[Rfam]
RNA sequence: AUGAGAGAUAGAGGUGCGAUUUUUAAGAGUAGGAUUGCAGAGGAGGCACGAUGAAGCAAUUUGAAAGGGAAAAUCGCCGAAGUAUAUAGUAUUGCCAAAAUGCUAUAUGCUGGUGUUGAGUAGAAUAUGCUCAAUACUGUCACAAGUAUUCAUGGAAUAUUUGUGGAGUGCUAUCAGCAAA
Numbered sequence: 001a002u003g004a005g006a007g008a009u010a011g012a013g014g015u016g017c018g019a020u021u022u023u024u025a026a027g028a029g030u031a032g033g034a035u036u037g038c039a040g041a042g043g044a045g046g047c048a049c050g051a052u053g054a055a056g057c058a059a060u061u062u063g064a065a066a067g068g069g070a071a072a073a074u075c076g077c078c079g080a081a082g083u084a085u086a087u088a089g090u091a092u093u094g095c096c097a098a099a100a101u102g103c104u105a106u107a108u109g110c111u112g113g114u115g116u117u118g119a120g121u122a123g124a125a126u127a128u129g130c131u132c133a134a135u136a137c138u139g140u141c142a143c144a145a146g147u148a149u150u151c152a153u154g155g156a157a158u159a160u161u162u163g164u165g166g167a168g169u170g171c172u173a174u175c176a177g178c179a180a181a
Stems, first nucleotide, its partner, number of pairs: 007175005016077009032062007081111012112138011140166009
A member of the RNA family "Lysine riboswitch aptamer" from Garciella nitratireducens, 181 nucleotides long. A search with the family's covariance model found it, with a score of 132 bits.